A member of the RNA family "Selenocysteine insertion sequence 4" from Dethiosulfatibacter aminovorans, 38 nucleotides long. For this family Rfam cites "Molecular analysis of the grd operon coding for genes of the glycine reductase and of the thioredoxin system from Clostridium sticklandii" (Graentzdoerffer et al., Arch Microbiol, 2001). Lineage of the source: Bacteria > Bacillati > Tissierellia > Dethiosulfatibacter > Dethiosulfatibacter aminovorans.
[Rfam]
RNA sequence: GGUACCUGUACACGUUGCGGUGCAACAAUGGUUAAGGA
Dot-bracket structure: ....((.......(((((...)))))...)).......
Numbered sequence: 001g002g003u004a005c006c007u008g009u010a011c012a013c014g015u016u017g018c019g020g021u022g023c024a025a026c027a028a029u030g031g032u033u034a035a036g037g038a
Stems, first nucleotide, its partner, number of pairs: 005031002014026005
Rfam links the family to the GO term selenocysteine incorporation.